[Rfam]
RNA sequence: ACCAGGCGGUGAUGAUGAUGACUAUUGUCACUUUCCUGACAAACCACUGAUGGUUCUAAGUCACUACCUCAUCUGAGCUUGUG
Numbered sequence: 001a002c003c004a005g006g007c008g009g010u011g012a013u014g015a016u017g018a019u020g021a022c023u024a025u026u027g028u029c030a031c032u033u034u035c036c037u038g039a040c041a042a043a044c045c046a047c048u049g050a051u052g053g054u055u056c057u058a059a060g061u062c063a064c065u066a067c068c069u070c071a072u073c074u075g076a077g078c079u080u081g082u083g
Stems, first nucleotide, its partner, number of pairs: 003081005
The family of this 83-nucleotide sequence from Scophthalmus maximus is "Small nucleolar RNA SNORD11B".
The source organism's lineage runs through Eukaryota, Euteleostomi, Eurypterygia, Scophthalmidae and Scophthalmus.
For this family Rfam cites "snoSeeker: an advanced computational package for screening of guide and orphan snoRNA genes in the human genome" (Yang et al., Nucleic Acids Res, 2006).
Rfam links the family to the GO terms nucleolus and RNA processing.
The family's consensus secondary structure was predicted with WAR.
Rfam classes the family as a C/D-box small nucleolar RNA.